[Rfam]
RNA sequence: AUGUACCUGAGCGGGUUUUUCCCGAGAUUGGUGAUUUGCUUGCUGUCUUGGCAUAAAUUCAAAAAGGCAUAAACAUCGCAAAAUAAUGCUUAUAAAAUGGCUAUGAGGAUGGUUUUAGUAAGUAGGCGUUGCGGAGCUUUGGUUCAGAUAGAGCAAUGAAUCGUGCAUGCUAGGAAAACUGACCACACAUAGUGUUAGUAUCUUUCGAAGAUUUUCAAUCCUUCCCCAUU
Numbered sequence: 001a002u003g004u005a006c007c008u009g010a011g012c013g014g015g016u017u018u019u020u021c022c023c024g025a026g027a028u029u030g031g032u033g034a035u036u037u038g039c040u041u042g043c044u045g046u047c048u049u050g051g052c053a054u055a056a057a058u059u060c061a062a063a064a065a066g067g068c069a070u071a072a073a074c075a076u077c078g079c080a081a082a083a084u085a086a087u088g089c090u091u092a093u094a095a096a097a098u099g100g101c102u103a104u105g106a107g108g109a110u111g112g113u114u115u116u117a118g119u120a121a122g123u124a125g126g127c128g129u130u131g132c133g134g135a136g137c138u139u140u141g142g143u144u145c146a147g148a149u150a151g152a153g154c155a156a157u158g159a160a161u162c163g164u165g166c167a168u169g170c171u172a173g174g175a176a177a178a179c180u181g182a183c184c185a186c187a188c189a190u191a192g193u194g195u196u197a198g199u200a201u202c203u204u205u206c207g208a209a210g211a212u213u214u215u216c217a218a219u220c221c222u223u224c225c226c227c228a229u230u
Stems, first nucleotide, its partner, number of pairs: 044069006075229002078226001105223004110217003118166003122162001127158006134145004168200006